[Rfam]
RNA: Bacterial RNase P class A
RNA sequence: GGAGCUGGCCAGACAGUCGCGCGCCGCCUGGCGGUGCGAGGAAAGUCCGGGCUCCGCAGGGCAGAGUGCCAGGUAACGCCUGGGGGGCGUGAGCCCACGGAAAGUGCAGCAGAGAGUAGACCGCCACUCCCUCGGGAGCGGUAAGGGUGAAAGGGUGCGGUAAGAGCGCACCGCAUCGCGCGGUAACGCGGAUGGCUAGGUAAACCCCACUCGGAGCAAGACCAAAUAGGGAAGCAAUGGCGUGGCCCGCGCUGCUUCCGGGUAGGUUGCUACAGGCCGACGGUGACGUCGGUCGCAGAGGAAUGACUGUCCACGACAGAACCCGGCUUAUCGGCCAGCUCCCUUC
Number, nucleotide and partner (000 for none) at each position: 001g342002g341003a340004g339005c338006u337007g336008g335009c334010c333011a331012g311013a310014c309015a308016g307017u306018c305019g000020c038021g037022c036023g035024c034025c033026g032027c031028c000029u000030g000031g027032c026033g025034g024035u023036g022037c021038g020039a000040g000041g000042a000043a329044a328045g327046u000047c326048c325049g324050g323051g322052c216053u215054c214055c213056g000057c000058a000059g248060g247061g246062c245063a000064g212065a211066g210067u209068g208069c083070c082071a081072g080073g079074u000075a000076a000077c000078g000079c073080c072081u071082g070083g069084g098085g096086g095087g094088c093089g000090u000091g000092a000093g088094c087095c086096c085097a000098c084099g207100g206101a000102a000103a000104g205105u204106g201107c200108a000109g000110c000111a000112g000113a000114g000115a000116g000117u000118a000119g000120a000121c146122c145123g142124c141125c140126a000127c138128u137129c136130c135131c000132u000133c000134g000135g130136g129137a128138g127139c000140g125141g124142u123143a000144a000145g122146g121147g000148u000149g000150a000151a000152a000153g000154g172155g171156u170157g169158c168159g167160g000161u000162a000163a000164g000165a000166g000167c159168g158169c157170a156171c155172c154173g196174c194175a193176u192177c191178g000179c190180g189181c188182g187183g000184u000185a000186a000187c182188g181189c180190g179191g177192a176193u175194g174195g000196c173197u000198a000199g000200g107201u106202a000203a000204a105205c104206c100207c099208c068209a067210c066211u065212c064213g055214g054215a053216g052217c000218a000219a000220g268221a267222c266223c265224a000225a000226a000227u000228a000229g000230g259231g258232a257233a256234g255235c254236a000237a000238u000239g253240g252241c251242g250243u249244g000245g062246c061247c060248c059249g243250c242251g241252c240253u239254g235255c234256u233257u232258c231259c230260g000261g000262g000263u000264a000265g223266g222267u221268u220269g000270c000271u000272a000273c000274a000275g294276g293277c292278c291279g290280a289281c288282g287283g000284u000285g000286a000287c282288g281289u280290c279291g278292g277293u276294c275295g000296c000297a000298g000299a000300g000301g000302a000303a000304u000305g018306a017307c016308u015309g014310u013311c012312c000313a000314c000315g000316a000317c000318a000319g000320a000321a000322c051323c050324c049325g048326g047327c045328u044329u043330a000331u011332c000333g010334g009335c008336c007337a006338g005339c004340u003341c002342c001343c000344u000345u000346c000